About this RNA: Shown here is a 76-nucleotide RNA sequence from Eptesicus fuscus, a member of the family "mir-9223 microRNA precursor family". The sequence is in the family's curated seed alignment. Taxonomically the source falls in Eptesicus (Eukaryota, Sarcopterygii, Dipnotetrapodomorpha, Chiroptera).
RNA sequence: GGCGGUUCUCCGACGACAUACCCUGGAAUCAGGCUCCCUCCUCUCUGGUACCAGGGUGCGUCAUCCAAGAACUGUC
Numbered sequence: 001g002g003c004g005g006u007u008c009u010c011c012g013a014c015g016a017c018a019u020a021c022c023c024u025g026g027a028a029u030c031a032g033g034c035u036c037c038c039u040c041c042u043c044u045c046u047g048g049u050a051c052c053a054g055g056g057u058g059c060g061u062c063a064u065c066c067a068a069g070a071a072c073u074g075u076c
Stems, first nucleotide, its partner, number of pairs: 002075002005072005012065002015062003019058005025052002028049006
The base pairs follow the family's consensus structure, which was predicted with RNAalifold.